[Rfam]
RNA sequence: GGUCAUGAGUGCCAGCGCCAAGCCCCGGCUCGCUGGCCGGCAACCCUCGCGUUCGCGGCGGGGUGCCCCGGGUGAUGACCCGGCCCGUCGCGCGGUGUGGCGGGCAAGCGCGAGCG
Numbered sequence: 001g002g003u004c005a006u007g008a009g010u011g012c013c014a015g016c017g018c019c020a021a022g023c024c025c026c027g028g029c030u031c032g033c034u035g036g037c038c039g040g041c042a043a044c045c046c047u048c049g050c051g052u053u054c055g056c057g058g059c060g061g062g063g064u065g066c067c068c069c070g071g072g073u074g075a076u077g078a079c080c081c082g083g084c085c086c087g088u089c090g091c092g093c094g095g096u097g098u099g100g101c102g103g104g105c106a107a108g109c110g111c112g113a114g115c116g
Stems, first nucleotide, its partner, number of pairs: 001080004009038001011037006021030002039067003044063003048058001050057001083105010
The family of this 116-nucleotide sequence from Dactylosporangium sucinum is "SAM (S-adenosyl methionine) riboswitch aptamer". SAM-IV is a mRNA element that regulates gene expression via direct sensing of S-adenosylmethionine (SAM or AdoMet). SAM-IV riboswitches share conserved nucleotide positions with the previously described SAM-I riboswitches sequence analysis and molecular recognition experiments suggest that SAM-I and SAM-IV riboswitches share similar ligand binding sites, but have different scaffolds. Pairs were carried over by alignment from the consensus structure, which is taken from published work.